Shown here is a 60-nucleotide RNA from Prolemur simus, a member of the family "U7 small nuclear RNA". The source organism's lineage runs through Eukaryota, Dipnotetrapodomorpha, Primates, Lemuridae and Prolemur.
RNA sequence: UAAUACCACUCUUUUAGAAUUUGUCUAGCAGGUUUUCUGGUUUUCAACAGAAACUCCCCA
Numbered sequence: 001u002a003a004u005a006c007c008a009c010u011c012u013u014u015u016a017g018a019a020u021u022u023g024u025c026u027a028g029c030a031g032g033u034u035u036u037c038u039g040g041u042u043u044u045c046a047a048c049a050g051a052a053a054c055u056c057c058c059c060a
Stems, first nucleotide, its partner, number of pairs: 031057002034053006041046001
The family's consensus secondary structure was predicted with PFOLD.